[Rfam]
RNA: Molybdenum/Tungsten riboswitch aptamer (Moco RNA motif)
RNA sequence: UAAUCGCCAUAACUCCGAAUUCUAUCGACUAAGUUCAUGAGAAUAUGUGUCUAGAAUCAGUGACAAACUGUCACGAAGGCAUGGUUGGAAAUGACCAUGCCUCCUGUGUUUGGAAAGGUGUUGAAUGGCACAACAA
Numbered sequence: 001u002a003a004u005c006g007c008c009a010u011a012a013c014u015c016c017g018a019a020u021u022c023u024a025u026c027g028a029c030u031a032a033g034u035u036c037a038u039g040a041g042a043a044u045a046u047g048u049g050u051c052u053a054g055a056a057u058c059a060g061u062g063a064c065a066a067a068c069u070g071u072c073a074c075g076a077a078g079g080c081a082u083g084g085u086u087g088g089a090a091a092u093g094a095c096c097a098u099g100c101c102u103c104c105u106g107u108g109u110u111u112g113g114a115a116a117g118g119u120g121u122u123g124a125a126u127g128g129c130a131c132a133a134c135a136a
Stems, first nucleotide, its partner, number of pairs: 011122003015118002019057006028048002033044004060074005077102011103113002